[Rfam]
RNA sequence: CGUCUCCUCCAUGUCUCCACUGAUAUGGAUUGUGCCCGCCACCUGAGCGGGCUUUCUUUU
Numbered sequence: 001c002g003u004c005u006c007c008u009c010c011a012u013g014u015c016u017c018c019a020c021u022g023a024u025a026u027g028g029a030u031u032g033u034g035c036c037c038g039c040c041a042c043c044u045g046a047g048c049g050g051g052c053u054u055u056c057u058u059u060u
Base pairs, nucleotide, nucleotide: 008029009028010027011026012025013024014023015022034052035051036050037049038048039047

A member of the RNA family "Betaproteobacteria toxic small RNA" from Burkholderia sp. Leaf177, 60 nucleotides long. The match comes from Rfam's covariance-model search (57 bits). A reference for the family is Kimelman et al. (2012), "A vast collection of microbial genes that are toxic to bacteria", Genome Res. About the family: Overexpression in amino aid rich medium attenuates growth, suggesting role in repressing amino acid intake and metabolism.